[Rfam]
RNA sequence: GUAGUGAAAGCCGCGCCGGGGUGCCCGUAGGAAAGGUCCGGUGCGGUGAAGGUGGGUGAUCUCCGCCCUUGCCGGGGCGGGGUGCCAUCAAGGCGGUCGGCGUCCGGGAGUUAACGGCUCCGUGGGCGCCGCCG
Numbered sequence: 001g002u003a004g005u006g007a008a009a010g011c012c013g014c015g016c017c018g019g020g021g022u023g024c025c026c027g028u029a030g031g032a033a034a035g036g037u038c039c040g041g042u043g044c045g046g047u048g049a050a051g052g053u054g055g056g057u058g059a060u061c062u063c064c065g066c067c068c069u070u071g072c073c074g075g076g077g078c079g080g081g082g083u084g085c086c087a088u089c090a091a092g093g094c095g096g097u098c099g100g101c102g103u104c105c106g107g108g109a110g111u112u113a114a115c116g117g118c119u120c121c122g123u124g125g126g127c128g129c130c131g132c133c134g
Stems, first nucleotide, its partner, number of pairs: 001094002011046009024035001052088004057084002062081008098131009107121005
This 134-nucleotide RNA sequence from Streptomyces albus belongs to the Rfam family "Streptomyces RNA 6925".
The organism belongs to Streptomyces albus subsp. albus, within Bacteria.
From the family's description: Identified by deep sequencing of transcriptome at the end of exponential growth phase.
The family has 4 seed sequences and 63 matches in Rfam 15.1.